[Rfam]
RNA sequence: AGCACUGCAUGGUAUCUGCAGCCAGUUGUGUCUUGGAUUGGUAUGUUCAUAAGUCAGUGCGAGAGAAACUCAACCGUUGGCAUCGUUGGUCUCCUUGCUGAUUUGUGUUUGGAGUCCUGGUUUAUGUUUUGAUACAAAC
Numbered sequence: 001a002g003c004a005c006u007g008c009a010u011g012g013u014a015u016c017u018g019c020a021g022c023c024a025g026u027u028g029u030g031u032c033u034u035g036g037a038u039u040g041g042u043a044u045g046u047u048c049a050u051a052a053g054u055c056a057g058u059g060c061g062a063g064a065g066a067a068a069c070u071c072a073a074c075c076g077u078u079g080g081c082a083u084c085g086u087u088g089g090u091c092u093c094c095u096u097g098c099u100g101a102u103u104u105g106u107g108u109u110u111g112g113a114g115u116c117c118u119g120g121u122u123u124a125u126g127u128u129u130u131g132a133u134a135c136a137a138a139c
Stems, first nucleotide, its partner, number of pairs: 002060006014054002017051001018046003023041001024039004063128002066125001068123001070120003079109005
The record is a 139-nucleotide sequence from Merluccius polli, which matches "Small nucleolar RNA SNORA8" in Rfam. By type it is an H/ACA-box small nucleolar RNA. The family is grouped with related families in Rfam's "SNORA8 clan". The organism belongs to Merluccius, within Eukaryota.